The family of this 63-nucleotide sequence from Solimicrobium silvestre is "Betaproteobacteria toxic small RNA". Pairs were carried over by alignment from the consensus structure, which was predicted with WAR. A reference for the family is Sass et al. (2017), "Identification of small RNAs abundant in Burkholderia cenocepacia biofilms reveal putative regulators with a potential role in carbon and iron metabolism", Sci Rep. Rfam 15.1 lists 951 matches to the family in 508 species. Lineage of the source: Bacteria > Pseudomonadota > Betaproteobacteria > Burkholderiales > Solimicrobium.

RNA sequence: UGUCUCCUCCACCUCCAAAAGGUGGACUUCAACCCGAAAUAAAACUAUUUCGGGUUUUUUUUC
Number, nucleotide and partner (000 for none) at each position: 001u000002g000003u000004c000005u000006c000007c000008u026009c025010c024011a023012c022013c021014u000015c000016c000017a000018a000019a000020a000021g013022g012023u011024g010025g009026a008027c000028u000029u000030c000031a056032a055033c054034c053035c052036g051037a050038a049039a000040u000041a000042a000043a000044a000045c000046u000047a000048u000049u038050u037051c036052g035053g034054g033055u032056u031057u000058u000059u000060u000061u000062u000063c000